Background: The record is a 100-nucleotide sequence from Galactobacter caseinivorans, which matches "TPP riboswitch aptamer (THI element)" in Rfam. The match comes from Rfam's covariance-model search (64 bits).
RNA sequence: CCCAGCGGCACGGGGUGUCCCUGACCAUUCGGGGACUGAGAUCACACCCGUCGCACCUGAUCUCGAUCAUUCGAGCGGAGGGAUGUCGUAUGGGCUCUGU
Number, nucleotide and partner (000 for none) at each position: 001c000002c000003c000004a000005g000006c088007g087008g086009c085010a084011c050012g049013g048014g047015g000016u044017g036018u035019c034020c033021c032022u031023g030024a000025c000026c000027a000028u000029u000030c023031g022032g021033g020034g019035a018036c017037u000038g000039a000040g000041a000042u000043c000044a016045c000046a000047c014048c013049c012050g011051u000052c000053g000054c000055a000056c081057c080058u079059g000060a000061u000062c075063u074064c073065g072066a000067u000068c000069a000070u000071u000072c065073g064074a063075g062076c000077g000078g000079a058080g057081g056082g000083a000084u010085g009086u008087c007088g006089u000090a000091u000092g000093g000094g000095c000096u000097c000098u000099g000100u000